[Rfam]
RNA sequence: ACUUUCAGGGAUCAUUUCUGUAGUUGGUCACUAGAGGAGAGUGAUCGCUCCUGAUCGGCGUCACAAGCCACGAGGAGGAGCGGGGUGUUCUCUCCUGAGCGCGAAGCGGGCGGGCGGUGCUGCUUGAGCAGGGGCCGCCCGCCAUUGAUGACCGUUCCCGGCUCCCCUGGUGGGGCUCGGGAGGGAGAGAACACGGGCUGAGUGGU
Numbered sequence: 001a002c003u004u005u006c007a008g009g010g011a012u013c014a015u016u017u018c019u020g021u022a023g024u025u026g027g028u029c030a031c032u033a034g035a036g037g038a039g040a041g042u043g044a045u046c047g048c049u050c051c052u053g054a055u056c057g058g059c060g061u062c063a064c065a066a067g068c069c070a071c072g073a074g075g076a077g078g079a080g081c082g083g084g085g086u087g088u089u090c091u092c093u094c095c096u097g098a099g100c101g102c103g104a105a106g107c108g109g110g111c112g113g114g115c116g117g118u119g120c121u122g123c124u125u126g127a128g129c130a131g132g133g134g135c136c137g138c139c140c141g142c143c144a145u146u147g148a149u150g151a152c153c154g155u156u157c158c159c160g161g162c163u164c165c166c167c168u169g170g171u172g173g174g175g176c177u178c179g180g181g182a183g184g185g186a187g188a189g190a191a192c193a194c195g196g197g198c199u200g201a202g203u204g205g206u
Stems, first nucleotide, its partner, number of pairs: 001024003006020005043055001045054002067206005085194012099155003109143004115137004120131004158180002160177003164174003
Source information
The family of this 206-nucleotide sequence from Polioptila caerulea is "Small nucleolar RNA U3". Clan: U3 clan. A search with the family's covariance model found it, with a score of 151 bits. On this family, see Marz and Stadler, RNA Biol 2010: "Comparative analysis of eukaryotic U3 snoRNA". The family has 87 seed sequences and 19,072 matches in Rfam 15.1. Gene Ontology terms of the family: RNA processing and nucleolus. From the family's description: Small nucleolar RNAs (snoRNAs) are involved in the processing and modification of rRNA in the nucleolus. Rfam classes the family as a C/D-box small nucleolar RNA. Lineage of the source: Eukaryota > Craniata > Teleostomi > Coelurosauria > Polioptila.